This 121-nucleotide sequence from Lederbergia galactosidilytica belongs to the Rfam family "Bacillaceae-1 RNA".
[Rfam]
RNA sequence: UUAAGAGGAUCAAAGGUUAAGAGUGCAACAUCCUAUUAACAGCUCAAAGCACGAUAUCCCAUCGUUUCGCCUGCACCGCGUUCUGUAGGCCGCGACGCCUUUGCGACCUGCAUCCUGCAGG
Dot-bracket structure: ..........(((((((.......((..(...........................................................)..))...)))))))...(((((.....)))))
The source organism's lineage runs through Bacteria, Bacillota, Bacilli, Caryophanales and Lederbergia.